[Rfam]
RNA: MAT2A 3'UTR stem loop D
RNA sequence: UCUGGGGUAUGGCGUAAGUACAGAGAAGCCAUCACCUCAGA
Numbered sequence: 001u002c003u004g005g006g007g008u009a010u011g012g013c014g015u016a017a018g019u020a021c022a023g024a025g026a027a028g029c030c031a032u033c034a035c036c037u038c039a040g041a
Stems, first nucleotide, its partner, number of pairs: 001041008009032005